This 71-nucleotide sequence from Patiria miniata belongs to the Rfam family "mir-153 microRNA precursor family". Rfam links the family to the GO terms miRNA-mediated post-transcriptional gene silencing and RISC complex.
[Rfam]
RNA sequence: GUCCCAGUCAUUUUUGUGCUUAUGCAACUCUCCUACUCUUGUAGUUGCAUAGUCACAAAAGUGAUUGGGAC
Numbered sequence: 001g002u003c004c005c006a007g008u009c010a011u012u013u014u015u016g017u018g019c020u021u022a023u024g025c026a027a028c029u030c031u032c033c034u035a036c037u038c039u040u041g042u043a044g045u046u047g048c049a050u051a052g053u054c055a056c057a058a059a060a061g062u063g064a065u066u067g068g069g070a071c
Stems, first nucleotide, its partner, number of pairs: 002070005008064011020052001023049007